[Rfam]
RNA sequence: UUUUAGAGAUGAUGAUUUCUAUCAGAGGCUGUUUCUGAGGAUGAGCAAAGAGUUCUUCCAGUGCUGCAAAAAACUGAUUUGCCAUUCUGAUCAAAAG
Number, nucleotide and partner (000 for none) at each position: 001u000002u000003u095004u094005a000006g092007a091008g000009a000010u000011g000012a000013u000014g000015a000016u000017u000018u000019c000020u000021a000022u000023c000024a000025g000026a000027g000028g000029c000030u000031g000032u000033u000034u000035c000036u000037g000038a000039g000040g000041a000042u000043g055044a054045g053046c052047a000048a000049a000050g000051a000052g046053u045054u044055c043056u000057u000058c000059c000060a000061g000062u000063g000064c000065u000066g082067c081068a080069a079070a078071a000072a000073a000074c000075u000076g000077a000078u070079u069080u068081g067082c066083c000084a000085u000086u000087c000088u000089g000090a000091u007092c006093a000094a004095a003096a000097g000
RNA: Small nucleolar RNA Z119
Organism: Dichanthelium oligosanthes